[Rfam]
RNA sequence: CAUGGGGAGGGGGGUUUGUCCUUCAGCCCGGAUUGCAAGAGGGCACAGGCCAGGCUGAGGGACCCCACUGGUGCACA
Numbered sequence: 001c002a003u004g005g006g007g008a009g010g011g012g013g014g015u016u017u018g019u020c021c022u023u024c025a026g027c028c029c030g031g032a033u034u035g036c037a038a039g040a041g042g043g044c045a046c047a048g049g050c051c052a053g054g055c056u057g058a059g060g061g062a063c064c065c066c067a068c069u070g071g072u073g074c075a076c077a
Base pairs, nucleotide, nucleotide: 003075004074006072009069010068012066013065014064018063019062020061021060022059023058024057025056026055027054028053030051031050033048034047035046

Shown here is a 77-nucleotide sequence from Pipistrellus kuhlii, a member of the family "mir-9193 microRNA precursor family". Rfam links the family to the GO terms miRNA-mediated post-transcriptional gene silencing and RISC complex. A search with the family's covariance model found it, with a score of 64 bits.